[Rfam]
RNA: Plastid-psbA-4 3UTR RNA
RNA sequence: AUAUAAGGAGCAAUAACCUAUUUCUUGUUCUAGCAAGGGGGUUAUUGCUCCUUUAU
Numbered sequence: 001a002u003a004u005a006a007g008g009a010g011c012a013a014u015a016a017c018c019u020a021u022u023u024c025u026u027g028u029u030c031u032a033g034c035a036a037g038g039g040g041g042u043u044a045u046u047g048c049u050c051c052u053u054u055a056u
Base pairs, nucleotide, nucleotide: 005053006052007051008050009049010048011047012046013045014044015043022039023038024037025036026035027034